[Rfam]
RNA: mir-320 microRNA precursor family
RNA sequence: AAUAAUAAGGGUCUUCUCUUCCCAGUUCUUCCCAGAAUUGGGAAAAGCUGGAUUGCAGGGGGCAGGGACGAAGGAAG
Numbered sequence: 001a002a003u004a005a006u007a008a009g010g011g012u013c014u015u016c017u018c019u020u021c022c023c024a025g026u027u028c029u030u031c032c033c034a035g036a037a038u039u040g041g042g043a044a045a046a047g048c049u050g051g052a053u054u055g056c057a058g059g060g061g062g063c064a065g066g067g068a069c070g071a072a073g074g075a076a077g
Stems, first nucleotide, its partner, number of pairs: 014060004018055001022051004029044006